The record is a 299-nucleotide RNA sequence from Corythaeola cristata, which matches "ryfA RNA" in Rfam. Rfam classes the family as a small RNA. The match comes from Rfam's covariance-model search (136 bits). The base pairs follow the family's consensus structure, which was predicted with RNAalifold. From the family's description: This family consists of a number of bacterial RNA genes of 305 bases in length.

RNA sequence: CGGGGCCUUUUCGCCGAUUCGCAACCGGGCACCGACUUUCAGGAAAGGAUUAUCCACUUGCCGUACCACGCAGGCACAAACAGCGUGCUUGCUCUCGCGUCAUUUUCGUCGGUGGGGAUGCCGUGAAACGGCCUGUAAGGGCCACACAAUGAAAAAAUACUACAUGUGUAUUUUUAUCGUUGUUACUGGAGCUUUGUUUACGCCACAUGGGGAGGGUUGGAAGAUUACUAAUAACGCUCUGAAUGUGACGAUAAACAUUAGCAGCAAGUAGCGAUUAGGCCCCUUCGGGGGCCUUUUUU
Numbered sequence: 001c002g003g004g005g006c007c008u009u010u011u012c013g014c015c016g017a018u019u020c021g022c023a024a025c026c027g028g029g030c031a032c033c034g035a036c037u038u039u040c041a042g043g044a045a046a047g048g049a050u051u052a053u054c055c056a057c058u059u060g061c062c063g064u065a066c067c068a069c070g071c072a073g074g075c076a077c078a079a080a081c082a083g084c085g086u087g088c089u090u091g092c093u094c095u096c097g098c099g100u101c102a103u104u105u106u107c108g109u110c111g112g113u114g115g116g117g118a119u120g121c122c123g124u125g126a127a128a129c130g131g132c133c134u135g136u137a138a139g140g141g142c143c144a145c146a147c148a149a150u151g152a153a154a155a156a157a158u159a160c161u162a163c164a165u166g167u168g169u170a171u172u173u174u175u176a177u178c179g180u181u182g183u184u185a186c187u188g189g190a191g192c193u194u195u196g197u198u199u200a201c202g203c204c205a206c207a208u209g210g211g212g213a214g215g216g217u218u219g220g221a222a223g224a225u226u227a228c229u230a231a232u233a234a235c236g237c238u239c240u241g242a243a244u245g246u247g248a249c250g251a252u253a254a255a256c257a258u259u260a261g262c263a264g265c266a267a268g269u270a271g272c273g274a275u276u277a278g279g280c281c282c283c284u285u286c287g288g289g290g291g292c293c294u295u296u297u298u299u
Stems, first nucleotide, its partner, number of pairs: 007047006014028003029036001061189002071091007095126005101120002104117005130143005146183007156175002159172001161170003191269002194267005213229002216226001244257003277294007

Taxonomically the source falls in Corythaeola (Eukaryota, Bilateria, Craniata, Tetrapoda).